[Rfam]
About this RNA
This 183-nucleotide RNA from Planococcus rifietoensis belongs to the Rfam family "Lysine riboswitch aptamer". Its family is annotated with lysine biosynthetic process in the Gene Ontology. The family's consensus secondary structure is taken from published work.
RNA sequence: UCGAUGGGUAGAGGCUGCAGCCUUCAUCAGUAGAAUGUGCGAGUUUGACCGCGUUGACCACAUUCGAAAGGGAAGCUUGCCGAAAUCACCGUUUCCGGGUCAGGGGAGCGGCGAUUGGGGACAUUUCGAACAGGAAUGCCACUGUCAUUUGCAGUGAGUUGCAGAUGGAGAGCUACAGGGUUG
Number, nucleotide and partner (000 for none) at each position: 001u000002c000003g000004a000005u000006g000007g000008g176009u175010a174011g173012a000013g000014g000015c000016u000017g080018c079019a078020g077021c000022c075023u074024u073025c072026a000027u000028c000029a000030g000031u000032a000033g065034a064035a063036u062037g061038u060039g059040c000041g000042a000043g000044u000045u000046u000047g000048a000049c000050c000051g000052c000053g000054u000055u000056g000057a000058c000059c039060a038061c037062a036063u035064u034065c033066g000067a000068a000069a000070g000071g000072g025073a024074a023075g022076c000077u020078u019079g018080c017081c000082g000083a000084a116085a115086u114087c113088a000089c111090c110091g109092u108093u107094u106095c105096c000097g000098g000099g000100u000101c000102a000103g000104g000105g095106g094107a093108g092109c091110g090111g089112c000113g087114a086115u085116u084117g143118g142119g000120g140121a000122c138123a137124u136125u135126u134127c133128g000129a000130a000131c000132a000133g127134g126135a125136a124137u123138g122139c000140c120141a000142c118143u117144g000145u168146c167147a166148u165149u164150u163151g162152c000153a000154g000155u000156g000157a000158g000159u000160u000161g000162c151163a150164g149165a148166u147167g146168g145169a000170g000171a000172g000173c011174u010175a009176c008177a000178g000179g000180g000181u000182u000183g000